This 86-nucleotide RNA sequence from Aquarana catesbeiana belongs to the Rfam family "mir-130 microRNA precursor family".

RNA sequence: UAUUUACUAAAGGCAAAUCCACUUUGCACUACAUUUGCACUUGAAAGUGCACUUGCAGUGCAAAGUGGAUUUGCCUUUAGUAAAUA
Numbered sequence: 001u002a003u004u005u006a007c008u009a010a011a012g013g014c015a016a017a018u019c020c021a022c023u024u025u026g027c028a029c030u031a032c033a034u035u036u037g038c039a040c041u042u043g044a045a046a047g048u049g050c051a052c053u054u055g056c057a058g059u060g061c062a063a064a065g066u067g068g069a070u071u072u073g074c075c076u077u078u079a080g081u082a083a084a085u086a
Stems, first nucleotide, its partner, number of pairs: 001086003005082006012075008022065009
For this family Rfam cites "Identification of tissue-specific microRNAs from mouse" (Lagos-Quintana et al., Curr Biol, 2002). Taxonomically the source falls in Aquarana (Eukaryota, Bilateria, Deuterostomia, Craniata).